The record is a 52-nucleotide RNA from Rhizomicrobium palustre, which matches "ffh sRNA" in Rfam. It scores 53 bits against the family's covariance model. The organism belongs to Rhizomicrobium, within Bacteria.

[Rfam]
RNA sequence: CCGGCUUGGGAUCGCCCUCAGGCAGCGCGUGGCGCCCCCUGGGGCGGUAGUG
Dot-bracket structure: ...............(((((((..((((...))))..)))))))........
Numbered sequence: 001c002c003g004g005c006u007u008g009g010g011a012u013c014g015c016c017c018u019c020a021g022g023c024a025g026c027g028c029g030u031g032g033c034g035c036c037c038c039c040u041g042g043g044g045c046g047g048u049a050g051u052g
Stems, first nucleotide, its partner, number of pairs: 016044007025035004